[Rfam]
RNA sequence: ACGUACUGAAGUACGCUGCGGUUCCUGUGCGCUGGCCGGACGCGGCUGAGGGCCUGCUCGCGACGCUCCCUGAACG
Numbered sequence: 001a002c003g004u005a006c007u008g009a010a011g012u013a014c015g016c017u018g019c020g021g022u023u024c025c026u027g028u029g030c031g032c033u034g035g036c037c038g039g040a041c042g043c044g045g046c047u048g049a050g051g052g053c054c055u056g057c058u059c060g061c062g063a064c065g066c067u068c069c070c071u072g073a074a075c076g
Stems, first nucleotide, its partner, number of pairs: 002015005019034004024029001047073001049071004
The record is a 76-nucleotide RNA sequence from Pseudomonas knackmussii, which matches "Xanthomonas sRNA sX9" in Rfam. It scores 45 bits against the family's covariance model. It is annotated as a small RNA. On this family, see Schmidtke et al., Nucleic Acids Res 2011: "Genome-wide transcriptome analysis of the plant pathogen Xanthomonas identifies sRNAs with putative virulence functions". The organism belongs to Pseudomonas knackmussii, within Bacteria.